[Rfam]
RNA sequence: AACUCGCAACGCGACUGGCGCGAUCAAGGUGGGGCACCACCGGGGAGCGAAGGACAGUCCGGACACCGCGCGCCUGGGUGACCGGC
Numbered sequence: 001a002a003c004u005c006g007c008a009a010c011g012c013g014a015c016u017g018g019c020g021c022g023a024u025c026a027a028g029g030u031g032g033g034g035c036a037c038c039a040c041c042g043g044g045g046a047g048c049g050a051a052g053g054a055c056a057g058u059c060c061g062g063a064c065a066c067c068g069c070g071c072g073c074c075u076g077g078g079u080g081a082c083c084g085g086c
Base pairs, nucleotide, nucleotide: 004054005053007052010049011048012047015044016043017074018073019072020071021070029040030039031038032037064080065079066078067077
Shown here is an 86-nucleotide RNA sequence from Actinomadura kijaniata, a member of the family "ZMP/ZTP riboswitch aptamer (pfl RNA motif)". Lineage of the source: Bacteria > Bacillati > Actinomycetes > Streptosporangiales > Actinomadura. The match comes from Rfam's covariance-model search (49 bits).